[Rfam]
RNA sequence: GGUUUCCGUUGAUGCAAAUCUCCAAUCAUCUUAAUGUAAGAUAAGAAGCAAUUCCCCAUUGGUAGCAAAUGGUUAUUCCAUUAAGCGGGGAAA
Numbered sequence: 001g002g003u004u005u006c007c008g009u010u011g012a013u014g015c016a017a018a019u020c021u022c023c024a025a026u027c028a029u030c031u032u033a034a035u036g037u038a039a040g041a042u043a044a045g046a047a048g049c050a051a052u053u054c055c056c057c058a059u060u061g062g063u064a065g066c067a068a069a070u071g072g073u074u075a076u077u078c079c080a081u082u083a084a085g086c087g088g089g090g091a092a093a
Stems, first nucleotide, its partner, number of pairs: 009025003054090004058081002061078001062076005
RNA: Plastid-rps12 3UTR RNA